[Rfam]
Nucleotides: 050
Base pairs, nucleotide, nucleotide: 001022002021003020004019005018006017011050012049013048014047015046026040027039028038029037030036
Number, partner (000 for none) and nucleotide at each position: 001022c002021g003020g004019g005018g006017a007000c008000a009000a010000u011050g012049c013048g014047g015046c016000c017006u018005c019004c020003c021002c022001g023000u024000g025000a026040a027039a028038u029037g030036g031000c032000g033000a034000c035000c036030c037029c038028a039027u040026u041000c042000a043000a044000g045000c046015g047014c048013u049012g050011c
Source information:
The family of this 50-nucleotide RNA is "chrB-b RNA". The sequence is in the family's curated seed alignment. The family's consensus secondary structure is taken from published work. It is annotated as a cis-regulatory element.